[Rfam]
RNA sequence: AAUUCUGUUCGUAAGAACAAGAGAAAGCAGAUUAUUCUAUACCCGAUAAAGUCCAAUUACGCACUGGGA
Numbered sequence: 001a002a003u004u005c006u007g008u009u010c011g012u013a014a015g016a017a018c019a020a021g022a023g024a025a026a027g028c029a030g031a032u033u034a035u036u037c038u039a040u041a042c043c044c045g046a047u048a049a050a051g052u053c054c055a056a057u058u059a060c061g062c063a064c065u066g067g068g069a
Stems, first nucleotide, its partner, number of pairs: 003022002006019005042068003051060002

This 69-nucleotide RNA sequence from Musa balbisiana belongs to the Rfam family "Plastid-clpP 5UTR RNA". By type it is a cis-regulatory element. It scores 60 bits against the family's covariance model. On this family, see Richter et al., Plant Commun 2023: "Retrograde signaling in plants: A critical review focusing on the GUN pathway and beyond". From the family's description: Plastid clpP is a non-coding RNA (ncRNA) recognised in plastids. It was found in the prime untranslated region (5UTR) of a protease complex subunit (clpP) in plastids, suggesting a posible cis-regulatory function. Rfam 15.1 lists 2,105 matches to the family in 526 species.